[Rfam]
The family of this 71-nucleotide RNA sequence from Candidatus Izimoplasma sp. HR1 is "tRNA".
A search with the family's covariance model found it, with a score of 58 bits.
Nucleotides: 071
Stems, first nucleotide, its partner, number of pairs: 001070007010024003026042005047063005
Number, partner (000 for none) and nucleotide at each position: 001070a002069g003068g004067g005066g006065c007064g008000u009000a010024g011023c012022a013000a014000a015000a016000u017000g018000g019000u020000u021000a022012u023011g024010c025000a026042g027041c028040g029039g030038u031000c032000u033000c034000c035000a036000a037000c038030a039029c040028c041027g042026u043000c044000u045000a046000c047063g048062g049061g050060a051059g052000u053000u054000c055000g056000a057000u058000c059051c060050u061049c062048u063047c064007c065006g066005c067004c068003c069002c070001u071000g
Its family is annotated with triplet codon-amino acid adaptor activity in the Gene Ontology. By type it is a transfer RNA. The family's consensus secondary structure is taken from published work.